[Rfam]
mir-342 microRNA precursor family: a 63-nucleotide sequence from Tupaia belangeri. On this family, see Long and Chen, Biochem Genet 2009: "Identification and characteristics of cattle microRNAs by homology searching and small RNA cloning". Pairs were carried over by alignment from the consensus structure, which was predicted with RNAalifold. Rfam links the family to the GO terms RISC complex, sensory perception of sound and cell aging.
RNA sequence: AGGGGUGCUAUCUGUGACUGAGGGCAUGGUCAGCGGAUUGUCUCACACAGAAAUCGCACCCGU
Numbered sequence: 001a002g003g004g005g006u007g008c009u010a011u012c013u014g015u016g017a018c019u020g021a022g023g024g025c026a027u028g029g030u031c032a033g034c035g036g037a038u039u040g041u042c043u044c045a046c047a048c049a050g051a052a053a054u055c056g057c058a059c060c061c062g063u
Stems, first nucleotide, its partner, number of pairs: 001063001003061006011051006019045005
Dot-bracket structure: (.((((((..((((((..(((((.................)))))))))))....)))))).)